Background: Rfam assigns this 53-nucleotide sequence from Sandarakinorhabdus cyanobacteriorum to the family "ffh sRNA". By type it is a small RNA. NCBI's taxonomy places the organism under Bacteria, Pseudomonadota, Sphingomonadales, Sphingosinicellaceae, Sandarakinorhabdus.
[Rfam]
RNA sequence: GCGUCCGAGGAUGCACGCCGGCCAGCGAGUUUUCGCCCGCCGGCGCGUUUCUG
Numbered sequence: 001g002c003g004u005c006c007g008a009g010g011a012u013g014c015a016c017g018c019c020g021g022c023c024a025g026c027g028a029g030u031u032u033u034c035g036c037c038c039g040c041c042g043g044c045g046c047g048u049u050u051c052u053g
Base pairs, nucleotide, nucleotide: 016045017044018043019042020041021040022039025036026035027034028033